Shown here is a 251-nucleotide sequence from Companilactobacillus versmoldensis, a member of the family "T-box leader".
About the family: Uncharged tRNA acts as the effector for transcription antitermination of genes in the T-box leader family. T-boxes are found upstream of many aminoacyl-tRNA synthetase genes and some amino acid biosynthetic genes usually in Gram-positive bacteria.
The family's RNA type in Rfam is cis-regulatory leader.
NCBI's taxonomy places the organism under Bacteria, Bacilli, Lactobacillaceae, Companilactobacillus, Companilactobacillus versmoldensis.
A search with the family's covariance model found it, with a score of 105 bits.

[Rfam]
RNA sequence: AUAAAGACGUGAAGAAAGAGGAGUAAGAUUUUUCAAUCUGACAGUGAAUCGGGAAUGGUGAGAACCCGAGCAGAUGAGAAUUAUCUGAAUAACACUUUCCAAGUUUCUGACUGAAAUGAUUUUAUCAAACUAGGUUCAGACGUGUGACUGGGACGUUAUCAUCCAGUGGAGUAUGUUAGUACUCUUAUUAAGGUGGCCUAUCUUCGGAUAGGCAAACUGGGUGGUACCGCGAAAAGUCUUUCGUCCCUUUU
Numbered sequence: 001a002u003a004a005a006g007a008c009g010u011g012a013a014g015a016a017a018g019a020g021g022a023g024u025a026a027g028a029u030u031u032u033u034c035a036a037u038c039u040g041a042c043a044g045u046g047a048a049u050c051g052g053g054a055a056u057g058g059u060g061a062g063a064a065c066c067c068g069a070g071c072a073g074a075u076g077a078g079a080a081u082u083a084u085c086u087g088a089a090u091a092a093c094a095c096u097u098u099c100c101a102a103g104u105u106u107c108u109g110a111c112u113g114a115a116a117u118g119a120u121u122u123u124a125u126c127a128a129a130c131u132a133g134g135u136u137c138a139g140a141c142g143u144g145u146g147a148c149u150g151g152g153a154c155g156u157u158a159u160c161a162u163c164c165a166g167u168g169g170a171g172u173a174u175g176u177u178a179g180u181a182c183u184c185u186u187a188u189u190a191a192g193g194u195g196g197c198c199u200a201u202c203u204u205c206g207g208a209u210a211g212g213c214a215a216a217c218u219g220g221g222u223g224g225u226a227c228c229g230c231g232a233a234a235a236g237u238c239u240u241u242c243g244u245c246c247c248u249u250u251u
Stems, first nucleotide, its partner, number of pairs: 007104002015098004026086004037074003049069005107139004111134002141155003196213007219247003229244005